Shown here is a 46-nucleotide RNA from Phycisphaerae bacterium RAS1, a member of the family "Acido-Lenti-1 RNA". Lineage of the source: Bacteria > Pseudomonadati > Planctomycetota > Phycisphaerae.
[Rfam]
RNA sequence: CCCACGGCUGACGCCGUUGGCUUUAUUCUGUCGCCCCUACGGGGCU
Numbered sequence: 001c002c003c004a005c006g007g008c009u010g011a012c013g014c015c016g017u018u019g020g021c022u023u024u025a026u027u028c029u030g031u032c033g034c035c036c037c038u039a040c041g042g043g044g045c046u
Base pairs, nucleotide, nucleotide: 001020002019004017005016006015007014008013033045034044035043036042037041